A member of the RNA family "Small nucleolar RNA SNORD77" from Ornithorhynchus anatinus, 69 nucleotides long.
Its family is annotated with RNA processing and nucleolus in the Gene Ontology.
The family's RNA type in Rfam is C/D-box small nucleolar RNA.
From the family's description: U77 belongs to the C/D family of snoRNAs. It is predicted to guide 2'O-ribose methylation of large 28S rRNA subunit at position A1521. The C/D snoRNAs U44, U47, U74, U75, U76, U78, U79, U80 and U81 share the same host gene as U77 (non-coding).
Clan: SNORD77 clan.
RNA sequence: AUACAGUGAUGCUUGCAUAGUUCAGCAGAUGGAACAGUGACGAAAUAUACCACAUAAUCUGAUGUAUCU
Numbered sequence: 001a002u003a004c005a006g007u008g009a010u011g012c013u014u015g016c017a018u019a020g021u022u023c024a025g026c027a028g029a030u031g032g033a034a035c036a037g038u039g040a041c042g043a044a045a046u047a048u049a050c051c052a053c054a055u056a057a058u059c060u061g062a063u064g065u066a067u068c069u
Stems, first nucleotide, its partner, number of pairs: 001067004006041002009038002013028004046056003